[Rfam]
RNA sequence: CUGUCAGAAUGAAUACGUCCACCAGUGGUGGACUAGGUGAUCCACACCAGUGUUUCGGACAGCGGUUCGAUUCCGCUCAGCUCCAUUCUCCGGCCCGAUCCAGGGCCAUCCCGGGGCUGCCAUGGUUUCGACGGGGCAUGAGGAGGGUGACUGAAGCCUGCUCGGUGAGAGCAAACCCGUAACAGCGAACAACAUCGUUCGUUUCUCCCGUCAGCCCGCCCCUGUGCUGGCCUGACCUUCUAAGGGAGAUGGGGUGAGGUCAGCCUUAUCACCCAAAUGACCCAUGGGGCCUGGAAGGGCCC
Numbered sequence: 001c002u003g004u005c006a007g008a009a010u011g012a013a014u015a016c017g018u019c020c021a022c023c024a025g026u027g028g029u030g031g032a033c034u035a036g037g038u039g040a041u042c043c044a045c046a047c048c049a050g051u052g053u054u055u056c057g058g059a060c061a062g063c064g065g066u067u068c069g070a071u072u073c074c075g076c077u078c079a080g081c082u083c084c085a086u087u088c089u090c091c092g093g094c095c096c097g098a099u100c101c102a103g104g105g106c107c108a109u110c111c112c113g114g115g116g117c118u119g120c121c122a123u124g125g126u127u128u129c130g131a132c133g134g135g136g137c138a139u140g141a142g143g144a145g146g147g148u149g150a151c152u153g154a155a156g157c158c159u160g161c162u163c164g165g166u167g168a169g170a171g172c173a174a175a176c177c178c179g180u181a182a183c184a185g186c187g188a189a190c191a192a193c194a195u196c197g198u199u200c201g202u203u204u205c206u207c208c209c210g211u212c213a214g215c216c217c218g219c220c221c222c223u224g225u226g227c228u229g230g231c232c233u234g235a236c237c238u239u240c241u242a243a244g245g246g247a248g249a250u251g252g253g254g255u256g257a258g259g260u261c262a263g264c265c266u267u268a269u270c271a272c273c274c275a276a277a278u279g280a281c282c283c284a285u286g287g288g289g290c291c292u293g294g295a296a297g298g299g300c301c302c
Base pairs, nucleotide, nucleotide: 017033018032019031020030021029022028023027036152037151038150040148041147042146043145047143048142050139051138052137053136054135055134056133057132061077062076063075064074065073078119079118080117081116082115083114084113159173160172161171162170163169214233217229218228220226245274246273248270249269250268251267252266253265254264255263287302288301289300290299291298292297